[Rfam]
Source information: Rfam assigns this 152-nucleotide RNA sequence from Papaver somniferum to the family "MIR394 microRNA precursor family". Rfam links the family to the GO terms miRNA-mediated post-transcriptional gene silencing and RISC complex. The literature on the family includes a 2004 paper in Mol Cell by Jones-Rhoades and Bartel, "Computational identification of plant microRNAs and their targets, including a stress-induced miRNA". It scores 74 bits against the family's covariance model. The family has 19 seed sequences and 724 matches in Rfam 15.1.

RNA sequence: CUUACAUAGCUUAUUGGCAUUCUGUCCACCUCCUGAGUUCAAAAGGAAAAAUGAAUUACAUAACAAUCAUCAUAUAUAUCAAACCCUAGCUAAUGUUCUUUUUUGUUAAUAAAAAUAUGGAGGUGGGCAUCCUGUCAACAGAGCUUUGUAAG
Numbered sequence: 001c002u003u004a005c006a007u008a009g010c011u012u013a014u015u016g017g018c019a020u021u022c023u024g025u026c027c028a029c030c031u032c033c034u035g036a037g038u039u040c041a042a043a044a045g046g047a048a049a050a051a052u053g054a055a056u057u058a059c060a061u062a063a064c065a066a067u068c069a070u071c072a073u074a075u076a077u078a079u080c081a082a083a084c085c086c087u088a089g090c091u092a093a094u095g096u097u098c099u100u101u102u103u104u105g106u107u108a109a110u111a112a113a114a115a116u117a118u119g120g121a122g123g124u125g126g127g128c129a130u131c132c133u134g135u136c137a138a139c140a141g142a143g144c145u146u147u148g149u150a151a152g
Stems, first nucleotide, its partner, number of pairs: 011142001014138006023129011